The family of this 311-nucleotide RNA sequence from Callithrix jacchus is "Nuclear RNase P". Taxonomically the source falls in Callithrix (Eukaryota, Opisthokonta, Vertebrata, Sarcopterygii). A search with the family's covariance model found it, with a score of 78 bits. The family's RNA type in Rfam is ribozyme. Pairs were carried over by alignment from the consensus structure, which is taken from published work.
RNA sequence: GGCAGAGGGAAACUCAUCAGAGAGUUAUGGUGCAUCAUGCCACUCCAGUCCCAUGUCCCUUAGGAGGAUCAGAGACUAGGGUCAGAAGAAGCCUUAACAAUGUUCUCCCUGAGUUGCAGGGAGGUGAAUUCCCAGAGAAUGGAGCUGCUUGAGGUAAGACAUUGCAGGAUAUGCUGUAGAUCCCAUCCCUGGGGAGAAAUUCAGGGGAAGUCUCCUAAGUGUGAGCUUGAAACAGAUUCAGUGAAAUGAGCUCAACAGCUGAGGUUAGAUAUCCCACAUGGGGUCCUCAUAAACCAAUUCAGUCUGCUGUC
Numbered sequence: 001g002g003c004a005g006a007g008g009g010a011a012a013c014u015c016a017u018c019a020g021a022g023a024g025u026u027a028u029g030g031u032g033c034a035u036c037a038u039g040c041c042a043c044u045c046c047a048g049u050c051c052c053a054u055g056u057c058c059c060u061u062a063g064g065a066g067g068a069u070c071a072g073a074g075a076c077u078a079g080g081g082u083c084a085g086a087a088g089a090a091g092c093c094u095u096a097a098c099a100a101u102g103u104u105c106u107c108c109c110u111g112a113g114u115u116g117c118a119g120g121g122a123g124g125u126g127a128a129u130u131c132c133c134a135g136a137g138a139a140u141g142g143a144g145c146u147g148c149u150u151g152a153g154g155u156a157a158g159a160c161a162u163u164g165c166a167g168g169a170u171a172u173g174c175u176g177u178a179g180a181u182c183c184c185a186u187c188c189c190u191g192g193g194g195a196g197a198a199a200u201u202c203a204g205g206g207g208a209a210g211u212c213u214c215c216u217a218a219g220u221g222u223g224a225g226c227u228u229g230a231a232a233c234a235g236a237u238u239c240a241g242u243g244a245a246a247u248g249a250g251c252u253c254a255a256c257a258g259c260u261g262a263g264g265u266u267a268g269a270u271a272u273c274c275c276a277c278a279u280g281g282g283g284u285c286c287u288c289a290u291a292a293a294c295c296a297a298u299u300c301a302g303u304c305u306g307c308u309g310u311c
Stems, first nucleotide, its partner, number of pairs: 001311004008305003013263004018258001020061003024057001029044004033039001070302001072300003090104003094100001105123006126239005144226003264290002267287002